[Rfam]
RNA: Small nucleolar RNA snoR138
Organism: Cocos nucifera
RNA sequence: AGAGCCUCGUGAAUAACUGGAUGCUGGAAAACAAUAGACCACAUCUGGCUCAGACAGGGGCUCAUAGUGAUACGAAUCCUUUUGAGGGAAAGGAAUCCAUCUUGUCCUUGCUAUUCCUUUCUUAGAUGGCUUCGGAUAUCC
Numbered sequence: 001a002g003a004g005c006c007u008c009g010u011g012a013a014u015a016a017c018u019g020g021a022u023g024c025u026g027g028a029a030a031a032c033a034a035u036a037g038a039c040c041a042c043a044u045c046u047g048g049c050u051c052a053g054a055c056a057g058g059g060g061c062u063c064a065u066a067g068u069g070a071u072a073c074g075a076a077u078c079c080u081u082u083u084g085a086g087g088g089a090a091a092g093g094a095a096u097c098c099a100u101c102u103u104g105u106c107c108u109u110g111c112u113a114u115u116c117c118u119u120u121c122u123u124a125g126a127u128g129g130c131u132u133c134g135g136a137u138a139u140c141c
Stems, first nucleotide, its partner, number of pairs: 003062006015050001017048006025041003073134004078129001080113001085108003089105001091102003